mir-17 microRNA precursor family: an 82-nucleotide RNA sequence from Petromyzon marinus. The family's consensus secondary structure was predicted with RNAalifold. The family has 234 seed sequences and 4,687 matches in Rfam 15.1. Rfam's curators write: This family represents the microRNA (miRNA) precursor mir-17, family, which includes mir-20, mir-91, and mir-103. miRNAs are transcribed as ~70nt precursors (modelled here) and subsequently processed by the Dicer enzyme to give a ~22nt product. The organism belongs to Petromyzon, within Eukaryota. On this family, see Lagos-Quintana et al., Science 2001: "Identification of novel genes coding for small expressed RNAs".

[Rfam]
RNA sequence: UCGCCAGGCGCCAAAGUGCUGAUAGUGCAGGUAGGCUCCCUUGAUGCGACUACUGCAUUGUGAGCACUUGCAGCGCCUGGGA
Numbered sequence: 001u002c003g004c005c006a007g008g009c010g011c012c013a014a015a016g017u018g019c020u021g022a023u024a025g026u027g028c029a030g031g032u033a034g035g036c037u038c039c040c041u042u043g044a045u046g047c048g049a050c051u052a053c054u055g056c057a058u059u060g061u062g063a064g065c066a067c068u069u070g071c072a073g074c075g076c077c078u079g080g081g082a
Stems, first nucleotide, its partner, number of pairs: 005079004010074002014069007022061007030054005